[Rfam]
RNA: Archaeal large subunit ribosomal RNA, nucleotides 629 to 866
Organism: Candidatus Micrarchaeum sp. AZ1
RNA sequence: GAGUGUAUAGGUGUGGCGAGUCGAAAGGCGGAGCGAAAGCGAUAGCGCGCAGAUUCGAGGCGCAUGGUAUGAAAAUGCCAAAGCCACAUUUAUACGACCCGAAGCCAAUGCGAACUACGCGCGCCCAGGAUGAAGCUAGGUUAACGCCUGGUGGAGGUCCGCAACCUGUCAUGGCAUGUCCUGUUGGGUGAGGCGCGGGUAGCGGCGAUAUACCUAUCGAGCUUGGCAAUAGCGGGUC
Numbered sequence: 001g002a003g004u005g006u007a008u009a010g011g012u013g014u015g016g017c018g019a020g021u022c023g024a025a026a027g028g029c030g031g032a033g034c035g036a037a038a039g040c041g042a043u044a045g046c047g048c049g050c051a052g053a054u055u056c057g058a059g060g061c062g063c064a065u066g067g068u069a070u071g072a073a074a075a076u077g078c079c080a081a082a083g084c085c086a087c088a089u090u091u092a093u094a095c096g097a098c099c100c101g102a103a104g105c106c107a108a109u110g111c112g113a114a115c116u117a118c119g120c121g122c123g124c125c126c127a128g129g130a131u132g133a134a135g136c137u138a139g140g141u142u143a144a145c146g147c148c149u150g151g152u153g154g155a156g157g158u159c160c161g162c163a164a165c166c167u168g169u170c171a172u173g174g175c176a177u178g179u180c181c182u183g184u185u186g187g188g189u190g191a192g193g194c195g196c197g198g199g200u201a202g203c204g205g206c207g208a209u210a211u212a213c214c215u216a217u218c219g220a221g222c223u224u225g226g227c228a229a230u231a232g233c234g235g236g237u238c
Stems, first nucleotide, its partner, number of pairs: 005095013020029003033040002045063004052056001066079004098236002101233001105226004110222002115202004120197006126190001128160004135152007165187002168184001170183002173181002204214002